[Rfam]
RNA sequence: UUGAUGGUGAAGUCCCAUUCGGUCGCGUCGCCGAUCAGGACCUCGUCGCCGAAGCGGUCACCGUCGGCCAGCGUGUCCAGCACGGUCUGGGCGCCGUACUCGCCCUGGCCGAUCUUGUUCACCUUGCCGUGCGCGAUGAGGUAGACCUCGUCGGCCCGGUCGCCGGAGGUGACCACGACGUCGCCGGGCUGGAACUCGCGCUGCUGGAACCGGUCCGCCAACGCGACCAGCACGUCGUCGUCCGGGAAGUCGCGCAGCAGGGGCAGUUCGCGCAGUUCCUGCGGGAUCACGCGGAUCUCGGCGCCGGUGCUGGUGAAGCUCACCCGACCGUCGCCGAGCGCGUAGGUGAGGCGUCGGUUGACCCGGUAGGUGCCUGCCUGGGUGGACACCCAGGGCAACUUUCGCAGCAGCCACCGAGGUGAGAUGCCCUGCAUCUGAGGGGUGGACUUGGUGGUGCUGGCCAGGUUCCGCGCGCCCGCGGUGCUCAGGCUCUGCCGCUGCUGCUCGG
Dot-bracket structure: .....((((....(((..(.((..((.((.....((((.(((..(.((((((.(...(...(((((((......(.(.((.(((((......))))).)).))....)))).....(((..(....(.((.((((..(.(..((....(....(((((((....((......))........)))))))..)..))).)..))).)..)).)....)..))))))...)...)(((...((.........((.(.(((.(.(......).)...)))).)).......))...))).)))))).)))).)))).)).))....)).).(((........)))........(.((.((...(((.....))).)).)).))))....))))(((((((.(((.(.(.(.......)).)..))).))))))).....(..(.(((((((((((.......)))))).))))).)..)((.(((...(.(......).)..)))...)).